[Rfam]
Nucleotides: 092
Stems, first nucleotide, its partner, number of pairs: 002090004007085001009083007016075001018073003022069003029065003
Number, partner (000 for none) and nucleotide at each position: 001000u002090a003089c004088u005087c006000u007085u008000a009083c010082g011081c012080c013079u014078g015077a016075a017000a018073u019072u020071u021000g022069c023068u024067u025000u026000u027000u028000a029065c030064c031063u032000g033000g034000a035000c036000c037000u038000c039000g040000u041000a042000c043000u044000c045000u046000c047000u048000a049000c050000u051000g052000u053000g054000a055000g056000a057000a058000a059000a060000u061000a062000a063031a064030g065029g066000u067024g068023a069022g070000c071020a072019a073018a074000g075016u076000u077015u078014c079013a080012g081011g082010u083009g084000u085007g086000u087005g088004a089003g090002u091000g092000c
A member of the RNA family "mir-87 microRNA precursor family" from Dufourea novaeangliae, 92 nucleotides long. For this family Rfam cites "Temporal regulation of microRNA expression in Drosophila melanogaster mediated by hormonal signals and broad-Complex gene activity" (Sempere et al., Dev Biol, 2003). NCBI's taxonomy places the organism under Eukaryota, Eumetazoa, Panarthropoda, Pancrustacea, Dufourea. The match comes from Rfam's covariance-model search (53 bits).